[Rfam]
RNA sequence: UACCCAUGAGGAAAGCAAACAAAUGUCUUAACCCCAGUCCUGGCCCCAGAGCCAGUAAUGGUGAACCCACUGGGGCUGGCUGGGGGAAAAGAGGAAGCCCUGUUCCUGAAGGAACUGUCUGAGGUAC
Numbered sequence: 001u002a003c004c005c006a007u008g009a010g011g012a013a014a015g016c017a018a019a020c021a022a023a024u025g026u027c028u029u030a031a032c033c034c035c036a037g038u039c040c041u042g043g044c045c046c047c048a049g050a051g052c053c054a055g056u057a058a059u060g061g062u063g064a065a066c067c068c069a070c071u072g073g074g075g076c077u078g079g080c081u082g083g084g085g086g087a088a089a090a091g092a093g094g095a096a097g098c099c100c101u102g103u104u105c106c107u108g109a110a111g112g113a114a115c116u117g118u119c120u121g122a123g124g125u126a127c
Stems, first nucleotide, its partner, number of pairs: 001126004
RNA: Small nucleolar RNA SNORD22